[Rfam]
RNA: Actino-pnp RNA
Organism: Actinomycetales bacterium JB111
RNA sequence: UCCGGUCUUCGGUAGUGGCCUCCGGAUCCGAACCGGCUCCGUGGGCCUCGAUCGACGGCCGCU
Numbered sequence: 001u002c003c004g005g006u007c008u009u010c011g012g013u014a015g016u017g018g019c020c021u022c023c024g025g026a027u028c029c030g031a032a033c034c035g036g037c038u039c040c041g042u043g044g045g046c047c048u049c050g051a052u053c054g055a056c057g058g059c060c061g062c063u
Base pairs, nucleotide, nucleotide: 003061004060005059006058007057009055010054011053012052013051017047018046019045020044021043023041024040025039026038028036029035